[Rfam]
RNA sequence: CUUGACCGAGCCCAGCCACAGCGGCGUUUCGGGCGACCUGUUCUGUCCGUAGACGGCGAGGAACGCCUCCGCCUC
Numbered sequence: 001c002u003u004g005a006c007c008g009a010g011c012c013c014a015g016c017c018a019c020a021g022c023g024g025c026g027u028u029u030c031g032g033g034c035g036a037c038c039u040g041u042u043c044u045g046u047c048c049g050u051a052g053a054c055g056g057c058g059a060g061g062a063a064c065g066c067c068u069c070c071g072c073c074u075c
Stems, first nucleotide, its partner, number of pairs: 015025003032070002038065001043060002047056003